[Rfam]
RNA sequence: GGGGCUGAUUGUGUUGCUGGUGCAUGCCUCGGUCUUCAAAACCGCUUGGGAGGCGCGUGCCGUCUCCGCUGGGUUCGAUUCCCAGGCAGUCCC
Numbered sequence: 001g002g003g004g005c006u007g008a009u010u011g012u013g014u015u016g017c018u019g020g021u022g023c024a025u026g027c028c029u030c031g032g033u034c035u036u037c038a039a040a041a042c043c044g045c046u047u048g049g050g051a052g053g054c055g056c057g058u059g060c061c062g063u064c065u066c067c068g069c070u071g072g073g074u075u076c077g078a079u080u081c082c083c084a085g086g087c088a089g090u091c092c093c
Stems, first nucleotide, its partner, number of pairs: 001093007009085001011027003015024003030044004049067005070084004